Shown here is an 81-nucleotide RNA, a member of the family "skipping-rope RNA". The base pairs follow the family's consensus structure, which is taken from published work. It is one of the family's seed sequences. Rfam classes the family as a small RNA.
[Rfam]
RNA sequence: AGCUAUUGAGGUAGAAAAGGUUCUCUACACGCAACUUCGGUUGUUAUCAGAGAUGAGGGGUUGACCGUCCUUCCAAUAGCA
Number, nucleotide and partner (000 for none) at each position: 001a000002g080003c079004u078005a077006u076007u075008g074009a000010g000011g028012u027013a026014g025015a024016a000017a000018a000019g066020g065021u064022u063023c000024u015025c014026u013027a012028c011029a000030c050031g044032c043033a042034a041035c000036u000037u000038c000039g000040g000041u034042u033043g032044u031045u000046a000047u000048c000049a000050g030051a000052g000053a000054u000055g073056a072057g071058g070059g069060g000061u000062u000063g022064a021065c020066c019067g000068u000069c059070c058071u057072u056073c055074c008075a007076a006077u005078a004079g003080c002081a000